The family of this 79-nucleotide RNA is "skipping-rope RNA". The sequence is in the family's curated seed alignment. By type it is a small RNA.
[Rfam]
Nucleotides: 079
Base pairs, nucleotide, nucleotide: 002078003077004076005075006074007073008072011029012028013027014026015025019065020064021063022062031048032043033042034041035040053071054070055069056068057067
Number, partner (000 for none) and nucleotide at each position: 001000a002078g003077u004076c005075a006074g007073u008072g009000a010000g011029g012028u013027c014026g015025g016000a017000a018000a019065u020064g021063g022062u023000u024000c025015c026014c027013g028012a029011c030000a031048c032043a033042c034041g035040c036000g037000a038000a039000a040035g041034c042033g043032u044000a045000c046000c047000u048031g049000a050000g051000a052000u053071g054070c055069a056068g057067g058000g059000g060000a061000c062022a063021c064020c065019g066000c067057c068056c069055u070054g071053c072008c073007a074006c075005u076004g077003a078002u079000c